[Rfam]
RNA sequence: AUAUGUGAGCUGGGGUGCCCUAUGGCUGAGACUUACCCAUUGAACCUGAUCUAGUUAACACUAGCGUAGGGAGCUUGGAUUCAUUAAUA
Numbered sequence: 001a002u003a004u005g006u007g008a009g010c011u012g013g014g015g016u017g018c019c020c021u022a023u024g025g026c027u028g029a030g031a032c033u034u035a036c037c038c039a040u041u042g043a044a045c046c047u048g049a050u051c052u053a054g055u056u057a058a059c060a061c062u063a064g065c066g067u068a069g070g071g072a073g074c075u076u077g078g079a080u081u082c083a084u085u086a087a088u089a
Base pairs, nucleotide, nucleotide: 006077007076008075009074010073011039012038013037014036017026018025019024045070046069047068048067051064052063053062054061